[Rfam]
RNA sequence: GUUGCAAGUUCAAGGCCACAGCAGAAGCGCUCAUAAGCAGGGCCAUGUCAGAUUCCAAUGAAUCUGUAAAUUCUGCU
Numbered sequence: 001g002u003u004g005c006a007a008g009u010u011c012a013a014g015g016c017c018a019c020a021g022c023a024g025a026a027g028c029g030c031u032c033a034u035a036a037g038c039a040g041g042g043c044c045a046u047g048u049c050a051g052a053u054u055c056c057a058a059u060g061a062a063u064c065u066g067u068a069a070a071u072u073c074u075g076c077u
Stems, first nucleotide, its partner, number of pairs: 014044002016041002020077007027038002049066007
Dot-bracket structure: .............[[[[..(((((((((........)).]].]]....(((((((....)))))))....)))))))